Annotation:
Shown here is a 61-nucleotide sequence from Corynebacterium jeikeium, a member of the family "L31-Corynebacteriaceae ribosomal protein leader". The sequence is in the family's curated seed alignment. The literature on the family includes a 2020 paper in BMC Microbiol by Eckert and Weinberg, "Discovery of 20 novel ribosomal leader candidates in bacteria and archaea". The source organism's lineage runs through Bacteria, Actinomycetota, Actinomycetes, Mycobacteriales and Corynebacterium.
RNA sequence: ACUCAGGCACGACCCGCGCAAGGGAUGCGCAGGACCGACCUGUUGUACACACUCCUAGGGA
Numbered sequence: 001a002c003u004c005a006g007g008c009a010c011g012a013c014c015c016g017c018g019c020a021a022g023g024g025a026u027g028c029g030c031a032g033g034a035c036c037g038a039c040c041u042g043u044u045g046u047a048c049a050c051a052c053u054c055c056u057a058g059g060g061a
Stems, first nucleotide, its partner, number of pairs: 001046002004042004013033002016030004